[Rfam]
The family of this 87-nucleotide sequence from Dendrosporobacter quercicolus is "pan motif". Lineage of the source: Bacteria > Bacillati > Negativicutes > Selenomonadales > Dendrosporobacter. Rfam classes the family as a cis-regulatory element. The family's consensus secondary structure is taken from published work.

Nucleotides: 087
Base pairs, nucleotide, nucleotide: 002026003025004023005022006021007020008019010018011017057083058082059081060079061078062077063076064075066074067073068072
Number, partner (000 for none) and nucleotide at each position: 001000u002026g003025g004023g005022c006021g007020g008019c009000a010018u011017c012000g013000c014000u015000a016000u017011g018010a019008g020007c021006c022005g023004c024000a025003c026002c027000c028000g029000g030000a031000u032000u033000u034000u035000c036000a037000a038000a039000a040000u041000a042000c043000g044000a045000a046000u047000a048000g049000c050000u051000c052000u053000g054000c055000g056000u057083c058082c059081g060079c061078u062077u063076a064075g065000a066074u067073c068072u069000a070000u071000c072068a073067g074066g075064c076063u077062g078061a079060g080000a081059c082058g083057g084000a085000a086000u087000c